[Rfam]
RNA sequence: AACCAGUGUUAAAUAUUGAUUCUGCCAUAUGAAUCAUGCUGAUUUUAAUUUCUUACCAUUCCAUCUGAGGUU
Numbered sequence: 001a002a003c004c005a006g007u008g009u010u011a012a013a014u015a016u017u018g019a020u021u022c023u024g025c026c027a028u029a030u031g032a033a034u035c036a037u038g039c040u041g042a043u044u045u046u047a048a049u050u051u052c053u054u055a056c057c058a059u060u061c062c063a064u065c066u067g068a069g070g071u072u
Stems, first nucleotide, its partner, number of pairs: 001072004
Rfam assigns this 72-nucleotide sequence from Microcaecilia unicolor to the family "Small nucleolar RNA SNORD47". NCBI's taxonomy places the organism under Eukaryota, Chordata, Gnathostomata, Amphibia, Microcaecilia. It scores 54 bits against the family's covariance model. Rfam 15.1 lists 755 matches to the family in 638 species. Rfam classes the family as a C/D-box small nucleolar RNA.